[Rfam]
RNA: radC RNA
Organism: Pseudomonas fluorescens
RNA sequence: UACAAAGGGCGUGGUUCGCUGUCGUUGACAGCCCAGCCCAGGUAGCCAGAACCUUCAAGGCUACGCCACGUUCGUGGUGGUUUACCCAAGUGUGAUCAGCGUUCGGAAGCUCGCACGGUUACCGCUUCAGCGGUGAUGAAUGC
Number, nucleotide and partner (000 for none) at each position: 001u000002a000003c000004a000005a000006a000007g000008g000009g000010c000011g000012u035013g034014g033015u000016u000017c000018g032019c031020u030021g029022u028023c027024g000025u000026u000027g023028a022029c021030a020031g019032c018033c014034c013035a012036g000037c000038c000039c000040a000041g000042g064043u063044a062045g061046c060047c059048a000049g000050a082051a081052c080053c079054u000055u000056c000057a000058a000059g047060g046061c045062u044063a043064c042065g078066c077067c076068a075069c074070g000071u000072u000073c000074g069075u068076g067077g066078u065079g053080g052081u051082u050083u000084a000085c000086c000087c000088a000089a000090g000091u000092g000093u000094g000095a000096u000097c000098a000099g000100c000101g000102u000103u000104c000105g000106g000107a000108a000109g000110c000111u000112c142113g141114c000115a000116c000117g000118g137119u136120u135121a134122c133123c132124g131125c130126u000127u000128c000129a000130g125131c124132g123133g122134u121135g120136a119137u118138g000139a000140a000141u113142g112143c000